[Rfam]
RNA: U11 spliceosomal RNA
RNA sequence: UAAAAGGGUUGGUUGGCUAUGUAUGCCACACACAUCUUUUAUUUAAUGGAGGCUGUAUGGUUAUCAAGACAUAUGGCCGCAUAAUUUAUGGAUGAUAUAGGGUUGGCUUGCUCAGCUAACCCUUUU
Numbered sequence: 001u002a003a004a005a006g007g008g009u010u011g012g013u014u015g016g017c018u019a020u021g022u023a024u025g026c027c028a029c030a031c032a033c034a035u036c037u038u039u040u041a042u043u044u045a046a047u048g049g050a051g052g053c054u055g056u057a058u059g060g061u062u063a064u065c066a067a068g069a070c071a072u073a074u075g076g077c078c079g080c081a082u083a084a085u086u087u088a089u090g091g092a093u094g095a096u097a098u099a100g101g102g103u104u105g106g107c108u109u110g111c112u113c114a115g116c117u118a119a120c121c122c123u124u125u126u
Stems, first nucleotide, its partner, number of pairs: 008080002011078002014028004029052001033048003040045001053076007099123008108115002